This 83-nucleotide RNA sequence from Equus asinus belongs to the Rfam family "mir-8941 microRNA precursor family". Lineage of the source: Eukaryota > Metazoa > Craniata > Mammalia > Equus. The base pairs follow the family's consensus structure, which was predicted with RNAalifold. Gene Ontology terms of the family: miRNA-mediated post-transcriptional gene silencing and RISC complex.
Nucleotides: 083
Base pairs, nucleotide, nucleotide: 003081004080006078007077008076009075011074012073013072014071018070019069021067022066023065025064027063028062029061030060032059036058037057038056040055041054042053043052044051
Number, partner (000 for none) and nucleotide at each position: 001000g002000a003081g004080g005000g006078a007077g008076g009075u010000g011074a012073u013072g014071a015000c016000a017000c018070u019069g020000c021067g022066g023065g024000a025064g026000a027063c028062u029061c030060u031000g032059c033000u034000g035000g036058g037057g038056a039000a040055g041054g042053c043052u044051g045000g046000c047000a048000g049000c050000a051044c052043a053042g054041u055040c056038u057037c058036u059032g060030a061029g062028a063027g064025c065023c066022u067021c068000u069019c070018a071014u072013c073012a074011u075009g076008c077007c078006u079000g080004c081003c082000g083000g